[Rfam]
RNA sequence: UAAUAUGAAUAGAAAAAAAGAAGCCCUGCGUGAACAGGACUUCCUAGUAGAACCGUUAGACGGUAGCAUAAACUAAGAUAAAAUA
Numbered sequence: 001u002a003a004u005a006u007g008a009a010u011a012g013a014a015a016a017a018a019a020g021a022a023g024c025c026c027u028g029c030g031u032g033a034a035c036a037g038g039a040c041u042u043c044c045u046a047g048u049a050g051a052a053c054c055g056u057u058a059g060a061c062g063g064u065a066g067c068a069u070a071a072a073c074u075a076a077g078a079u080a081a082a083a084u085a
Stems, first nucleotide, its partner, number of pairs: 025038004052064005
RNA: RNA anti-toxin A
Organism: Ligilactobacillus pobuzihii